[Rfam]
RNA sequence: GCAGGUUUGGAUUUAUAGUAGGACUGUCCUCCUGGGUCUUUCAUGGAGUCCCAUGCCAGAGCAAACUGAGUUUGAGCCAUUAUCUGGCCUCUGUGGUCAUAGGCUGCUGACAUUGAAACAGGUUGCAUAGUG
Numbered sequence: 001g002c003a004g005g006u007u008u009g010g011a012u013u014u015a016u017a018g019u020a021g022g023a024c025u026g027u028c029c030u031c032c033u034g035g036g037u038c039u040u041u042c043a044u045g046g047a048g049u050c051c052c053a054u055g056c057c058a059g060a061g062c063a064a065a066c067u068g069a070g071u072u073u074g075a076g077c078c079a080u081u082a083u084c085u086g087g088c089c090u091c092u093g094u095g096g097u098c099a100u101a102g103g104c105u106g107c108u109g110a111c112a113u114u115g116a117a118a119c120a121g122g123u124u125g126c127a128u129a130g131u132g
Stems, first nucleotide, its partner, number of pairs: 001056003005050001006048001013046004018041001020039003024034001069124003072120001078115002083110002085106006

Small nucleolar RNA SNORA42/SNORA80 family: a 132-nucleotide RNA from Spermophilus dauricus. Its family is annotated with nucleolus and RNA processing in the Gene Ontology. The match comes from Rfam's covariance-model search (78 bits). The family's RNA type in Rfam is H/ACA-box small nucleolar RNA. The members of this family belong to the H/ACA class of snoRNAs that guide the sites of modification of uridines to pseudouridines. Human ACA42 (SNORA42) was cloned from HeLa cells by immunoprecipitation with anti-GAR1 antibody. Its is predicted to guide the pseudouridylation of residues U109 and U572 of 18S rRNA. ACA42 shares the same host gene with ACA26, ACA46, ACA50. This family also includes mammalian snoRNA ACA67 (SNORA80) which was identified by computational screening and its expression in mouse experimentally verified by Northern blot and primer extension analysis. ACA67 is proposed to guide the pseudouridylation of the same 18S rRNA residues as ACA42. The base pairs follow the family's consensus structure, which was predicted with RNAalifold. On this family, see Schattner et al., RNA 2006: "A computational screen for mammalian pseudouridylation guide H/ACA RNAs".